RNA sequence: UAGAAAUUUGAGUGGAUCUGACUCUAGUACGAGAGGACCGAGUUGGACAAACCUCUGGUGUAUCUGUUGUUCCGCCAGGAGCAUUGCAGAGUAGCUACGUUUGGAAGGGAUAAGCGCUGAAAGCAUAUAAGCGCGAAACCCACCACAAGAUGAGAUUUCUUUAAAGGGUCGUGGGAGAUGACCACGUUGAUAGGCUAUAGGUGUAAAGGCAGUAAUGUCAUAGCCGAGUAGUACUAAUAACCCAUAG
Numbered sequence: 001u002a003g004a005a006a007u008u009u010g011a012g013u014g015g016a017u018c019u020g021a022c023u024c025u026a027g028u029a030c031g032a033g034a035g036g037a038c039c040g041a042g043u044u045g046g047a048c049a050a051a052c053c054u055c056u057g058g059u060g061u062a063u064c065u066g067u068u069g070u071u072c073c074g075c076c077a078g079g080a081g082c083a084u085u086g087c088a089g090a091g092u093a094g095c096u097a098c099g100u101u102u103g104g105a106a107g108g109g110a111u112a113a114g115c116g117c118u119g120a121a122a123g124c125a126u127a128u129a130a131g132c133g134c135g136a137a138a139c140c141c142a143c144c145a146c147a148a149g150a151u152g153a154g155a156u157u158u159c160u161u162u163a164a165a166g167g168g169u170c171g172u173g174g175g176a177g178a179u180g181a182c183c184a185c186g187u188u189g190a191u192a193g194g195c196u197a198u199a200g201g202u203g204u205a206a207a208g209g210c211a212g213u214a215a216u217g218u219c220a221u222a223g224c225c226g227a228g229u230a231g232u233a234c235u236a237a238u239a240a241c242c243c244a245u246a247g
Stems, first nucleotide, its partner, number of pairs: 002160008012146004018046007048103005056097003063090005068083006107141003114134005163245001166243004170186005191236003194232005200225002204220001208219004
Rfam assigns this 247-nucleotide part of an RNA from Algibacter luteus to the family "Bacterial large subunit ribosomal RNA". Its Rfam clan is "LSU clan".